[Rfam]
RNA sequence: UCCGCAGCGCGUGUUUCAUCACGAUAUUGGGAAAGCUCACACCCUUCAGGCGCGCGGUGCGGAUAUAUUGCGCGGUCAUCACCUCGGCCAUCGAGGCGCGGGUCAUCCGCGCGAUAUAGCCCAUCCCGAAGAGUGCGAUGGUCAGGAUCGGCAGAAAGAAAUUCUCGAAAUUUGCAUCC
Numbered sequence: 001u002c003c004g005c006a007g008c009g010c011g012u013g014u015u016u017c018a019u020c021a022c023g024a025u026a027u028u029g030g031g032a033a034a035g036c037u038c039a040c041a042c043c044c045u046u047c048a049g050g051c052g053c054g055c056g057g058u059g060c061g062g063a064u065a066u067a068u069u070g071c072g073c074g075g076u077c078a079u080c081a082c083c084u085c086g087g088c089c090a091u092c093g094a095g096g097c098g099c100g101g102g103u104c105a106u107c108c109g110c111g112c113g114a115u116a117u118a119g120c121c122c123a124u125c126c127c128g129a130a131g132a133g134u135g136c137g138a139u140g141g142u143c144a145g146g147a148u149c150g151g152c153a154g155a156a157a158g159a160a161a162u163u164c165u166c167g168a169a170a171u172u173u174g175c176a177u178c179c
Stems, first nucleotide, its partner, number of pairs: 005140002008137005014131002016128001021124001028123004038113001040111001042109001046105001048103001051100004055075001057073006082096005145179003149174003154165001156163002
Dot-bracket structure: ....((.(((((.(((....(......((((......(.(.(...(.(..(((((.((((((.....)))))).)......(((((.....)))))))))..).)...).).)......)))))...).)).))))).))....(((.(((..(.((....)).)......)))..)))
Rfam assigns this 179-nucleotide RNA from Primorskyibacter flagellatus to the family "Ruegeria cis52 sRNA". NCBI's taxonomy places the organism under Bacteria, Pseudomonadota, Alphaproteobacteria, Rhodobacterales, Primorskyibacter. Its family is annotated with regulation of gene expression in the Gene Ontology. The match comes from Rfam's covariance-model search (139 bits).